[Rfam]
RNA: Small nucleolar RNA ACA64
RNA sequence: ACAGACUGAAAAUUACCUGUGAUGUAUCAGUUGUCACAGGUAAGAUUACUGUGCCGACAGGAAGGUGGUACAUAAAGCUUUUUGCCCGCUUUUGUAGCGGGACAAAUAAACCCAUGUGCCUACAGUG
Numbered sequence: 001a002c003a004g005a006c007u008g009a010a011a012a013u014u015a016c017c018u019g020u021g022a023u024g025u026a027u028c029a030g031u032u033g034u035c036a037c038a039g040g041u042a043a044g045a046u047u048a049c050u051g052u053g054c055c056g057a058c059a060g061g062a063a064g065g066u067g068g069u070a071c072a073u074a075a076a077g078c079u080u081u082u083u084g085c086c087c088g089c090u091u092u093u094g095u096a097g098c099g100g101g102a103c104a105a106a107u108a109a110a111c112c113c114a115u116g117u118g119c120c121u122a123c124a125g126u127g
Stems, first nucleotide, its partner, number of pairs: 005052002008049001009047002013043004021035004067120001069118005079108001081106003087099003